[Rfam]
Nucleotides: 130
Base pairs, nucleotide, nucleotide: 006018007017008016009015021058022057023056024055025053026052027051028050029049030048031047037044038043085117086116087115088114089113090112093108094107095106096105097104098103
Number, partner (000 for none) and nucleotide at each position: 001000a002000c003000c004000g005000u006018c007017u008016u009015u010000g011000u012000c013000u014000u015009g016008g017007g018006g019000u020000u021058g022057u023056a024055g025053c026052u027051c028050a029049u030048u031047c032000a033000g034000u035000g036000a037044a038043g039000a040000u041000a042000a043038c044037u045000g046000a047031g048030a049029g050028u051027g052026g053025g054000c055024c056023u057022g058021c059000u060000g061000a062000c063000a064000c065000c066000c067000a068000u069000g070000a071000a072000a073000u074000u075000a076000a077000a078000c079000a080000a081000a082000c083000c084000a085117g086116c087115a088114u089113c090112g091000g092000g093108u094107g095106g096105u097104g098103u099000g100000a101000a102000a103098a104097c105096a106095u107094u108093g109000c110000u111000u112090u113089g114088a115087u116086g117085c118000a119000a120000u121000u122000u123000c124000u125000g126000g127000g128000g129000c130000c

This 130-nucleotide sequence from Bugula neritina belongs to the Rfam family "U4atac minor spliceosomal RNA". Clan: U4 clan. It is annotated as a spliceosomal small nuclear RNA. On this family, see Lorkovic et al., RNA 2005: "Evolutionary conservation of minor U12-type spliceosome between plants and humans". The base pairs follow the family's consensus structure, which is taken from published work. U4atac is an essential component of the minor U12-type spliceosome complex which is required for removal of the rarer class of eukaryotic introns (AT-AC, U12-type).